[Rfam]
RNA sequence: AGCUGCGUGGUGGGCACAGAGCGAACUAUUCUUUCGCCUUUUACUAAAGAAUACCGUGUGCCCGCUACACCAAGCAGCAUACGCUAAUUUUUGGAGGGAUUUCUUAUUUGGAAGUCC
Numbered sequence: 001a002g003c004u005g006c007g008u009g010g011u012g013g014g015c016a017c018a019g020a021g022c023g024a025a026c027u028a029u030u031c032u033u034u035c036g037c038c039u040u041u042u043a044c045u046a047a048a049g050a051a052u053a054c055c056g057u058g059u060g061c062c063c064g065c066u067a068c069a070c071c072a073a074g075c076a077g078c079a080u081a082c083g084c085u086a087a088u089u090u091u092u093g094g095a096g097g098g099a100u101u102u103c104u105u106a107u108u109u110g111g112a113a114g115u116c117c
Stems, first nucleotide, its partner, number of pairs: 003077004008067011027053008098116006